[Rfam]
RNA sequence: AAAAAAACUACCCUCCGAUCCGCCUGACCUACGGCAUACGCCAUGGUCGCGCGGACAUCCGCUUCGCCCGAGGCGGCAGGGCUUUCAAGGAAACGCGAAAGCCUCCCGAAAUCCUAUUUUGGAUUUCCUUGGAAAGGAGACUCCAGCCUGCAUUA
Numbered sequence: 001a002a003a004a005a006a007a008c009u010a011c012c013c014u015c016c017g018a019u020c021c022g023c024c025u026g027a028c029c030u031a032c033g034g035c036a037u038a039c040g041c042c043a044u045g046g047u048c049g050c051g052c053g054g055a056c057a058u059c060c061g062c063u064u065c066g067c068c069c070g071a072g073g074c075g076g077c078a079g080g081g082c083u084u085u086c087a088a089g090g091a092a093a094c095g096c097g098a099a100a101g102c103c104u105c106c107c108g109a110a111a112u113c114c115u116a117u118u119u120u121g122g123a124u125u126u127c128c129u130u131g132g133a134a135a136g137g138a139g140a141c142u143c144c145a146g147c148c149u150g151c152a153u154u155a
Stems, first nucleotide, its partner, number of pairs: 003149001013139004019055005025049005033042003059076005079104008089094001105132002
Shown here is a 155-nucleotide sequence from an Anaerolineales bacterium, a member of the family "Molybdenum/Tungsten riboswitch aptamer (Moco RNA motif)". It scores 63 bits against the family's covariance model. The source organism's lineage runs through Bacteria, Bacillati, Chloroflexota, Anaerolineae and Anaerolineales. The family's consensus secondary structure is taken from published work.